RNA: Bacterial RNase P class A
Organism: Dehalobacter sp. 12DCB1
RNA sequence: GAAGUCAACCGGAUGGUCGCGGGGACAAGUGCCGAAAGGCCGUCUCUGAGGAAAGUCCGAGCUCCACAGGGCAGGGUGCCGGGUAACGCCCGGCGGAGGGAGAUUCCCUUUGAGGAAAGUGCAACAGAGAUAUACCGCCGCUGCCAAGCGGUAAGGGUGGAAAGGUGAGGUAAGAGCUCACCGGCAGUCAGGUAACUGGCUGGCCCUGCAAACCCCACCUGGAGCAAGACCAAAUAGAGGAACGAUGGAGCUGCCCGCUCUGUUCCCGGGUAAGGUCGCUUGAGGCUGCCGGUAACGGCAGUCCUAGAUAGAUGAUCAUCACCUCACAAGAGGUACAGAACUCGGCUUAUAGGUUGACUUCCGCU
Numbered sequence: 001g002a003a004g005u006c007a008a009c010c011g012g013a014u015g016g017u018c019g020c021g022g023g024g025a026c027a028a029g030u031g032c033c034g035a036a037a038g039g040c041c042g043u044c045u046c047u048g049a050g051g052a053a054a055g056u057c058c059g060a061g062c063u064c065c066a067c068a069g070g071g072c073a074g075g076g077u078g079c080c081g082g083g084u085a086a087c088g089c090c091c092g093g094c095g096g097a098g099g100g101a102g103a104u105u106c107c108c109u110u111u112g113a114g115g116a117a118a119g120u121g122c123a124a125c126a127g128a129g130a131u132a133u134a135c136c137g138c139c140g141c142u143g144c145c146a147a148g149c150g151g152u153a154a155g156g157g158u159g160g161a162a163a164g165g166u167g168a169g170g171u172a173a174g175a176g177c178u179c180a181c182c183g184g185c186a187g188u189c190a191g192g193u194a195a196c197u198g199g200c201u202g203g204c205c206c207u208g209c210a211a212a213c214c215c216c217a218c219c220u221g222g223a224g225c226a227a228g229a230c231c232a233a234a235u236a237g238a239g240g241a242a243c244g245a246u247g248g249a250g251c252u253g254c255c256c257g258c259u260c261u262g263u264u265c266c267c268g269g270g271u272a273a274g275g276u277c278g279c280u281u282g283a284g285g286c287u288g289c290c291g292g293u294a295a296c297g298g299c300a301g302u303c304c305u306a307g308a309u310a311g312a313u314g315a316u317c318a319u320c321a322c323c324u325c326a327c328a329a330g331a332g333g334u335a336c337a338g339a340a341c342u343c344g345g346c347u348u349a350u351a352g353g354u355u356g357a358c359u360u361c362c363g364c365u
Stems, first nucleotide, its partner, number of pairs: 001361010011350001012320007020048007053348003057345005062224004069256004074220005079093005095111006114215002119213002121209003135156002137152006164182006184204001185202007228277004239266005247261005284303008
Dot-bracket structure: ((((((((((((((((((.(((((((...............)))))))....[[[.[[[[[((((...[[[[.((((((((((.....))))).((((((.....))))))..((...(((((...........((((((((....))))))..)).......((((((.......)))))).((((((((....))))))).)..)))..)))))))))))))...((((.......(((((...(((((.]]]])))))))))).......))))......((((((((....))))))))..........)))))))....................]]]]]]]].).))))))))))....